[Rfam]
Nucleotides: 146
Base pairs, nucleotide, nucleotide: 006105007104008103009102010101012099013098014097016096017095031085032084033083034082035081036080037079038078039077046074047073048072049071050070054068055067056066057065119142120141121140122139123138124137125136126135127134128133
Number, partner (000 for none) and nucleotide at each position: 001000c002000g003000g004000a005000g006105g007104u008103u009102u010101g011000a012099u013098u014097a015000c016096a017095u018000g019000a020000c021000u022000c023000g024000u025000u026000u027000u028000g029000c030000u031085c032084g033083u034082c035081u036080a037079c038078u039077a040000g041000u042000u043000c044000u045000a046074c047073u048072a049071c050070u051000u052000c053000u054068c055067g056066c057065a058000g059000a060000u061000a062000c063000u064000g065057u066056g067055c068054g069000c070050g071049g072048u073047a074046g075000a076000c077039u078038g079037g080036u081035g082034g083033g084032c085031g086000c087000u088000g089000c090000u091000u092000a093000a094000g095017g096016u097014u098013a099012a100000u101010c102009a103008a104007g105006c106000c107000c108000c109000a110000u111000a112000a113000g114000a115000a116000a117000c118000u119142a120141a121140a122139c123138c124137c125136g126135c127134g128133c129000c130000a131000a132000u133128g134127c135126g136125c137124g138123g139122g140121u141120u142119u143000u144000u145000u146000u
Leucine operon leader: a 146-nucleotide RNA from Mangrovibacter sp. MFB070. The base pairs follow the family's consensus structure, which is taken from published work. It is annotated as a cis-regulatory leader. At least 6 amino acid operons are known to be regulated by attenuation. In each a leader sequence of 150-200 bp is found upstream of the first gene in the operon. This leader sequence can assume two different secondary structures known as the terminator and the anti-terminator structure. Lineage of the source: Bacteria > Pseudomonadota > Gammaproteobacteria > Enterobacterales > Mangrovibacter.